[Rfam]
About this RNA:
The record is an 85-nucleotide RNA, which matches "c-di-GMP-II-GAG riboswitch aptamer" in Rfam. It is one of the family's seed sequences. Rfam links the family to the GO terms cyclic-di-GMP binding and regulation of gene expression. Pairs were carried over by alignment from the consensus structure, which is taken from published work. On this family, see Weinberg et al., Proc Natl Acad Sci U S A 2017: "Bioinformatic analysis of riboswitch structures uncovers variant classes with altered ligand specificity".
RNA sequence: CCAGACACGGGGAGCUCUGACACGCGGCCCACACUCUGGCCGCCGGGACCGCGCCGAGCCACUGGCGAGACCGACCCGCGAUGAG
Numbered sequence: 001c002c003a004g005a006c007a008c009g010g011g012g013a014g015c016u017c018u019g020a021c022a023c024g025c026g027g028c029c030c031a032c033a034c035u036c037u038g039g040c041c042g043c044c045g046g047g048a049c050c051g052c053g054c055c056g057a058g059c060c061a062c063u064g065g066c067g068a069g070a071c072c073g074a075c076c077c078g079c080g081a082u083g084a085g
Base pairs, nucleotide, nucleotide: 001085004082006080008078009077010076011075014059015058023053024052025051026050027049029047038072039071041067042066043065044064